The record is a 171-nucleotide RNA from Lysobacter enzymogenes, which matches "FMN riboswitch aptamer (RFN element)" in Rfam.
RNA sequence: UAACGUCUUCAGGGCGGGGCGAAAUUCCCCACCGGCGGUAGGCGCCUUGCGCGCGAGCCCGCGAGCGCCCGGGCGGUCCGGUUUCCUGUCAGGAAGCCGCGCCGCGCGGGGUCAGCAGAUCCGGUCGAAUGCCGGAGCCGACGGUCACAGUCCGGAUGAAAGAAGACGACU
Numbered sequence: 001u002a003a004c005g006u007c008u009u010c011a012g013g014g015c016g017g018g019g020c021g022a023a024a025u026u027c028c029c030c031a032c033c034g035g036c037g038g039u040a041g042g043c044g045c046c047u048u049g050c051g052c053g054c055g056a057g058c059c060c061g062c063g064a065g066c067g068c069c070c071g072g073g074c075g076g077u078c079c080g081g082u083u084u085c086c087u088g089u090c091a092g093g094a095a096g097c098c099g100c101g102c103c104g105c106g107c108g109g110g111g112u113c114a115g116c117a118g119a120u121c122c123g124g125u126c127g128a129a130u131g132c133c134g135g136a137g138c139c140g141a142c143g144g145u146c147a148c149a150g151u152c153c154g155g156a157u158g159a160a161a162g163a164a165g166a167c168g169a170c171u
Stems, first nucleotide, its partner, number of pairs: 004168007017029003031151002033140002035062004057138002065116002120136005142154003
Gene Ontology term of the family: FMN binding. Taxonomically the source falls in Lysobacter (Bacteria, Pseudomonadati, Gammaproteobacteria, Lysobacterales). The base pairs follow the family's consensus structure, which is taken from published work.